[Rfam]
RNA sequence: UAGCCCUUUAAAUUAACCCAGUGAGGUUAAAAAGGCUGAAAAAUAAUGAUUAUAUAUAAAUAUAAUAAGUUAUGUAUAUCCUUAUGCCUUUUUACCUUAUGGUAAAAAGGCUUUUUAAA
Numbered sequence: 001u002a003g004c005c006c007u008u009u010a011a012a013u014u015a016a017c018c019c020a021g022u023g024a025g026g027u028u029a030a031a032a033a034g035g036c037u038g039a040a041a042a043a044u045a046a047u048g049a050u051u052a053u054a055u056a057u058a059a060a061u062a063u064a065a066u067a068a069g070u071u072a073u074g075u076a077u078a079u080c081c082u083u084a085u086g087c088c089u090u091u092u093u094a095c096c097u098u099a100u101g102g103u104a105a106a107a108a109g110g111c112u113u114u115u116u117a118a119a
Stems, first nucleotide, its partner, number of pairs: 003037001005035005013030006054075006061068001084113001086111011
This 119-nucleotide RNA from Marinisporobacter balticus belongs to the Rfam family "PyrR binding site". For this family Rfam cites "Molecular recognition of pyr mRNA by the Bacillus subtilis attenuation regulatory protein PyrR" (Bonner et al., Nucleic Acids Res, 2001). Rfam 15.1 lists 1,498 matches to the family in 930 species.